[Rfam]
The record is a 92-nucleotide sequence from Prunus armeniaca, which matches "MIR6288 microRNA precursor family" in Rfam. A search with the family's covariance model found it, with a score of 81 bits. NCBI's taxonomy places the organism under Eukaryota, Streptophytina, fabids, Amygdaleae, Prunus. Its family is annotated with miRNA-mediated post-transcriptional gene silencing and RISC complex in the Gene Ontology.

RNA sequence: CCAAAACUAGCCACUUGUAAUUUUCUAAUUGAUUCUUAUUGUGUUAAAAUUUUAUAAAAACCAAUUAGAAAAUAAAAUGUGGCUAAUUUUGA
Numbered sequence: 001c002c003a004a005a006a007c008u009a010g011c012c013a014c015u016u017g018u019a020a021u022u023u024u025c026u027a028a029u030u031g032a033u034u035c036u037u038a039u040u041g042u043g044u045u046a047a048a049a050u051u052u053u054a055u056a057a058a059a060a061c062c063a064a065u066u067a068g069a070a071a072a073u074a075a076a077a078u079g080u081g082g083c084u085a086a087u088u089u090u091g092a
Stems, first nucleotide, its partner, number of pairs: 002091005008085007016077001018075001020073012033060002036057004